[Rfam]
RNA: Bacterial large subunit ribosomal RNA, nucleotides 1295 to 1678
Organism: Ohtaekwangia koreensis
RNA sequence: GAUAAGGCAGGCGAGAAACCUGCCCACCGAAAGACUAAGGGUUCCGCGGCAAUGUUAAUCAACCGCGGGUAAGUCGGGACCUAAGCAAAAGCCGAGAGGCGUAUGUGAUGGACAAUUGGUUAAUAUUCCAAUACUACCGUAUUGAGCGAUGGGGUGACGGAGGAGUGAUAGUUCCGCGAUCUGACGAAAUAGGUCGUUAAAAGGCGUAGGUAUAGGGCUUGCAGGAAAAUCCGCAGGCUUUGCUGAAACCCAAUAGUACCUGGAGGCUUCGGCCAAAGGGAUAGAGAACGUAAGCAGACUUCCAAGAAAACCCCCUAAGCAUAUUGAUAUGGUACCCGUACCGGAAACCGACACAGGUAGUCGAGGAGAGGAUCCUAAGGUGCU
Numbered sequence: 001g002a003u004a005a006g007g008c009a010g011g012c013g014a015g016a017a018a019c020c021u022g023c024c025c026a027c028c029g030a031a032a033g034a035c036u037a038a039g040g041g042u043u044c045c046g047c048g049g050c051a052a053u054g055u056u057a058a059u060c061a062a063c064c065g066c067g068g069g070u071a072a073g074u075c076g077g078g079a080c081c082u083a084a085g086c087a088a089a090a091g092c093c094g095a096g097a098g099g100c101g102u103a104u105g106u107g108a109u110g111g112a113c114a115a116u117u118g119g120u121u122a123a124u125a126u127u128c129c130a131a132u133a134c135u136a137c138c139g140u141a142u143u144g145a146g147c148g149a150u151g152g153g154g155u156g157a158c159g160g161a162g163g164a165g166u167g168a169u170a171g172u173u174c175c176g177c178g179a180u181c182u183g184a185c186g187a188a189a190u191a192g193g194u195c196g197u198u199a200a201a202a203g204g205c206g207u208a209g210g211u212a213u214a215g216g217g218c219u220u221g222c223a224g225g226a227a228a229a230u231c232c233g234c235a236g237g238c239u240u241u242g243c244u245g246a247a248a249c250c251c252a253a254u255a256g257u258a259c260c261u262g263g264a265g266g267c268u269u270c271g272g273c274c275a276a277a278g279g280g281a282u283a284g285a286g287a288a289c290g291u292a293a294g295c296a297g298a299c300u301u302c303c304a305a306g307a308a309a310a311c312c313c314c315c316u317a318a319g320c321a322u323a324u325u326g327a328u329a330u331g332g333u334a335c336c337c338g339u340a341c342c343g344g345a346a347a348c349c350g351a352c353a354c355a356g357g358u359a360g361u362c363g364a365g366g367a368g369a370g371g372a373u374c375c376u377a378a379g380g381u382g383c384u
Stems, first nucleotide, its partner, number of pairs: 006024006025382004033362004039342002044068006053061002075338004080111002085106003089102001091100003115132005135334011146320002151315004159302004165295002171289004176197006198255001203250002209244003216239007224232002259280003348357002364376004